[Rfam]
RNA sequence: AGCUCGUCGGGGUCCACGCCGCGGGUGACGAGCAGAUAGUCGCGGAUGCAGAAUGCGUGGCGACCCUC
Number, nucleotide and partner (000 for none) at each position: 001a000002g000003c000004u063005c062006g061007u000008c059009g058010g000011g000012g029013u028014c000015c027016a026017c025018g000019c000020c000021g000022c000023g000024g000025g017026u016027g015028a013029c012030g000031a000032g000033c000034a000035g056036a000037u055038a054039g000040u053041c000042g000043c000044g049045g000046a000047u000048g000049c044050a000051g000052a000053a040054u038055g037056c035057g000058u009059g008060g000061c006062g005063a004064c000065c000066c000067u000068c000
Description: Shown here is a 68-nucleotide sequence from Nostocoides sp. F2B08, a member of the family "ASdes TB sRNA". A search with the family's covariance model found it, with a score of 43 bits. The base pairs follow the family's consensus structure, which is taken from published work.